[Rfam]
RNA sequence: UAGAACUGUUAUUGCGAAAGGUAGAAUGAUAGGGUAACGCCUUGAAAUGCCUUCCUUGAUACUCCGAAUAGCGUUUUGUUGAGUAAACAACAAAGGGUUAUAAGCUCGGUGAAGUCGGUUGAGAGUACACCGUAAGGUAUGUAGAAAUACAUACCACGAAAUGCGAACCAGAGGUGGUCGAGUGUAUGAUAGGCCGGAGGUCUAUAAA
Numbered sequence: 001u002a003g004a005a006c007u008g009u010u011a012u013u014g015c016g017a018a019a020g021g022u023a024g025a026a027u028g029a030u031a032g033g034g035u036a037a038c039g040c041c042u043u044g045a046a047a048u049g050c051c052u053u054c055c056u057u058g059a060u061a062c063u064c065c066g067a068a069u070a071g072c073g074u075u076u077u078g079u080u081g082a083g084u085a086a087a088c089a090a091c092a093a094a095g096g097g098u099u100a101u102a103a104g105c106u107c108g109g110u111g112a113a114g115u116c117g118g119u120u121g122a123g124a125g126u127a128c129a130c131c132g133u134a135a136g137g138u139a140u141g142u143a144g145a146a147a148u149a150c151a152u153a154c155c156a157c158g159a160a161a162u163g164c165g166a167a168c169c170a171g172a173g174g175u176g177g178u179c180g181a182g183u184g185u186a187u188g189a190u191a192g193g194c195c196g197g198a199g200g201u202c203u204a205u206a207a208a
Stems, first nucleotide, its partner, number of pairs: 018053006031043004054200004064109004068101005074095006116196005125187006131158003138153005162181001164180002167178004
Group II catalytic intron D1-D4-5: a 208-nucleotide sequence from Clostridium perfringens.
Rfam's curators put it in the seed alignment.
A reference for the family is Bonen and Vogel (2001), "The ins and outs of group II introns", Trends Genet.
About the family: Group II introns are found in rRNA, tRNA and mRNA of organelles in fungi, plants and protists, and also in mRNA in bacteria.
Its family is annotated with Group II intron splicing in the Gene Ontology.